[Rfam]
RNA sequence: AUGUAGAUGCACCCUGAUAAUUAAGACCCCUAGCCUUUAACGGCUGGGGUUUUUAUUU
Numbered sequence: 001a002u003g004u005a006g007a008u009g010c011a012c013c014c015u016g017a018u019a020a021u022u023a024a025g026a027c028c029c030c031u032a033g034c035c036u037u038u039a040a041c042g043g044c045u046g047g048g049g050u051u052u053u054u055a056u057u058u
Stems, first nucleotide, its partner, number of pairs: 003012002028049008
A member of the RNA family "Nitrogen stress-induced RNA 1" from Crinalium epipsammum, 58 nucleotides long. The family's RNA type in Rfam is small RNA. Taxonomically the source falls in Crinalium epipsammum (Bacteria, Bacillati, Cyanobacteriota, Gomontiellales). The literature on the family includes a 2010 paper in J Mol Biol by Ionescu et al., "Heterocyst-specific transcription of NsiR1, a non-coding RNA encoded in a tandem array of direct repeats in cyanobacteria".